[Rfam]
The record is a 66-nucleotide RNA sequence from Mesocricetus auratus, which matches "mir-503 microRNA precursor family" in Rfam.
RNA sequence: UGCCCUAGCAGCGUGAACAGUACUGUGGUAUUUGGUGUCUGGAGUAUUGUUUCCGCUGCCCGGGUA
Numbered sequence: 001u002g003c004c005c006u007a008g009c010a011g012c013g014u015g016a017a018c019a020g021u022a023c024u025g026u027g028g029u030a031u032u033u034g035g036u037g038u039c040u041g042g043a044g045u046a047u048u049g050u051u052u053c054c055g056c057u058g059c060c061c062g063g064g065u066a
Stems, first nucleotide, its partner, number of pairs: 002065004008059006015052007023044002026041003030036001
It scores 66 bits against the family's covariance model. For this family Rfam cites "Identification of hundreds of conserved and nonconserved human microRNAs" (Bentwich et al., Nat Genet, 2005).